[Rfam]
Nucleotides: 237
Stems, first nucleotide, its partner, number of pairs: 016220003020216006028208006035201003039197001041196001045192002
Number, partner (000 for none) and nucleotide at each position: 001000a002000g003000g004000u005000g006000g007000u008000u009000u010000g011000g012000a013000u014000u015000g016220g017219a018218g019000a020216c021215a022214g023213g024212g025211a026000u027000g028208a029207g030206g031205c032204a033203g034000a035201g036200c037199a038000u039197g040000g041196g042000a043000u044000g045192g046191g047000g048000c049000a050000u051000c052000a053000a054000c055000a056000g057000a058000a059000a060000g061000a062000u063000g064000a065000g066000a067000a068000g069000a070000u071000c072000c073000c074000g075000u076000u077000u078000c079000u080000u081000c082000c083000a084000c085000u086000g087000c088000g089000a090000a091000a092000a093000c094000a095000u096000g097000u098000u099000u100000g101000g102000u103000u104000g105000c106000u107000u108000g109000c110000c111000u112000g113000c114000c115000a116000a117000a118000g119000u120000g121000a122000g123000g124000g125000g126000a127000g128000c129000u130000g131000u132000g133000g134000g135000a136000g137000g138000u139000u140000u141000c142000a143000g144000g145000c146000a147000a148000a149000a150000g151000a152000a153000g154000a155000a156000a157000g158000u159000u160000u161000g162000a163000g164000a165000g166000c167000u168000c169000c170000g171000c172000g173000u174000c175000c176000g177000c178000u179000g180000g181000u182000g183000u184000u185000g186000u187000u188000g189000c190000u191046c192045c193000c194000u195000c196041c197039c198000c199037u200036g201035c202000a203033c204032u205031g206030c207029c208028u209000c210000u211025u212024c213023c214022c215021u216020g217000g218018c219017u220016c221000c222000c223000c224000c225000a226000c227000c228000g229000a230000c231000c232000a233000c234000c235000g236000u237000u